A member of the RNA family "U2 spliceosomal RNA" from Homo sapiens, 190 nucleotides long. Gene Ontology terms of the family: U2 snRNP, pre-mRNA branch point binding and mRNA branch site recognition. A search with the family's covariance model found it, with a score of 135 bits. Pairs were carried over by alignment from the consensus structure, which is taken from published work. Rfam describes the family as follows. U2 is a small nuclear RNA (snRNA) component of the spliceosome (involved in pre-mRNA splicing).
[Rfam]
RNA sequence: AUCGCUUCUUGGCCUUUUGGUUAAGUUCAAGUGUAGAAUCUGUUCUUACCAGUUUAAUAUGCUGAUAUGUCCUUUAUCUGAGGACAAUAUAGUAAAUGGAUUUUUUGAGCAGGGAGAUGGAAUAGGAGCUUGCUCCAUCCACUCCACACAUGGACCUGGUAUUGAGUACCUCCAGGAAUGUUCAACCCUC
Numbered sequence: 001a002u003c004g005c006u007u008c009u010u011g012g013c014c015u016u017u018u019g020g021u022u023a024a025g026u027u028c029a030a031g032u033g034u035a036g037a038a039u040c041u042g043u044u045c046u047u048a049c050c051a052g053u054u055u056a057a058u059a060u061g062c063u064g065a066u067a068u069g070u071c072c073u074u075u076a077u078c079u080g081a082g083g084a085c086a087a088u089a090u091a092g093u094a095a096a097u098g099g100a101u102u103u104u105u106u107g108a109g110c111a112g113g114g115a116g117a118u119g120g121a122a123u124a125g126g127a128g129c130u131u132g133c134u135c136c137a138u139c140c141a142c143u144c145c146a147c148a149c150a151u152g153g154a155c156c157u158g159g160u161a162u163u164g165a166g167u168a169c170c171u172c173c174a175g176g177a178a179u180g181u182u183c184a185a186c187c188c189u190c
Stems, first nucleotide, its partner, number of pairs: 008025002011022004047067002050064003069085006113145004119139002125136004150181003155176005